[Rfam]
RNA: MIR1520 microRNA precursor family
Organism: Glycine max
RNA sequence: UUUUUAUUGGAUGAUAACUGUCACACGUGUCAUGUUUGAAUAUCAAAUCUAUAGAACAUGACAUGUAACAGUCAUCAUCCAAUAAGAACAUGACACGUGACCGUCAAUAUUC
Numbered sequence: 001u002u003u004u005u006a007u008u009g010g011a012u013g014a015u016a017a018c019u020g021u022c023a024c025a026c027g028u029g030u031c032a033u034g035u036u037u038g039a040a041u042a043u044c045a046a047a048u049c050u051a052u053a054g055a056a057c058a059u060g061a062c063a064u065g066u067a068a069c070a071g072u073c074a075u076c077a078u079c080c081a082a083u084a085a086g087a088a089c090a091u092g093a094c095a096c097g098u099g100a101c102c103g104u105c106a107a108u109a110u111u112c
Stems, first nucleotide, its partner, number of pairs: 020101004027096002031092003035088002037081001